[Rfam]
RNA sequence: GGUUGAACCCGCGACUGGCGCACAUCAAGGUGGAACCGACCACCGGGGAGCUUCCUGUAUCGCUGGCACCGCGCGCCUGGGUGCCGCGG
Numbered sequence: 001g002g003u004u005g006a007a008c009c010c011g012c013g014a015c016u017g018g019c020g021c022a023c024a025u026c027a028a029g030g031u032g033g034a035a036c037c038g039a040c041c042a043c044c045g046g047g048g049a050g051c052u053u054c055c056u057g058u059a060u061c062g063c064u065g066g067c068a069c070c071g072c073g074c075g076c077c078u079g080g081g082u083g084c085c086g087c088g089g
Stems, first nucleotide, its partner, number of pairs: 003059001006056001011051002015047002017077005030043004066084005
The family of this 89-nucleotide sequence from Dactylosporangium siamense is "ZMP/ZTP riboswitch aptamer (pfl RNA motif)".
The literature on the family includes a 2015 paper in Chem Biol by Trausch et al., "Metal Ion-Mediated Nucleobase Recognition by the ZTP Riboswitch".
The family's consensus secondary structure is taken from published work.
Gene Ontology terms of the family: one-carbon metabolic process and regulation of purine nucleotide biosynthetic process.